[Rfam]
RNA sequence: GGCUGCAUCUGAAGGUGAUGAGUUAUCUCUGUUAUAACAGAGUCAGUUACACAUAAAACUCGUUCUCCUCUUUCCCCUCUUCUCACUACUCCACUUGACUAGUCUAAA
Numbered sequence: 001g002g003c004u005g006c007a008u009c010u011g012a013a014g015g016u017g018a019u020g021a022g023u024u025a026u027c028u029c030u031g032u033u034a035u036a037a038c039a040g041a042g043u044c045a046g047u048u049a050c051a052c053a054u055a056a057a058a059c060u061c062g063u064u065c066u067c068c069u070c071u072u073u074c075c076c077c078u079c080u081u082c083u084c085a086c087u088a089c090u091c092c093a094c095u096u097g098a099c100u101a102g103u104c105u106a107a108a
Base pairs, nucleotide, nucleotide: 001104002103003102004101005100008098009097011096012095015092017087019085020084021083022082042069045066046065

The family of this 108-nucleotide sequence from Nomascus leucogenys is "Y RNA". The base pairs follow the family's consensus structure, which is taken from published work. It is annotated as a non-coding RNA gene. For this family Rfam cites "Evolution of the vertebrate Y RNA cluster" (Mosig et al., Theory Biosci, 2007). It scores 38 bits against the family's covariance model.